RNA sequence: AAGAGGACGGCCUCUUUUUCCAAAAUCAUUCCGGGACGGCCCGG
Numbered sequence: 001a002a003g004a005g006g007a008c009g010g011c012c013u014c015u016u017u018u019u020c021c022a023a024a025a026u027c028a029u030u031c032c033g034g035g036a037c038g039g040c041c042c043g044g
Base pairs, nucleotide, nucleotide: 001016002015003014004013005012006011031044032043033042034041035040

This 44-nucleotide RNA sequence from Nitratireductor indicus belongs to the Rfam family "Guanidine-II riboswitch aptamer (mini-ykkC)". Rfam's curators write: Simpler in structure and has fewer highly conserved nucleotide positions than the ykkC-yxkD leader. Despite this each of its two stem-loop structures directly bind free guanidine. Therefore, mini-ykkC RNA motif represents a distinct class of guanidine-sensing RNAs. Its crystal structure was also determined. Rfam 15.1 lists 1,589 matches to the family in 1,229 species. Its family is annotated with regulation of gene expression in the Gene Ontology. It scores 35 bits against the family's covariance model.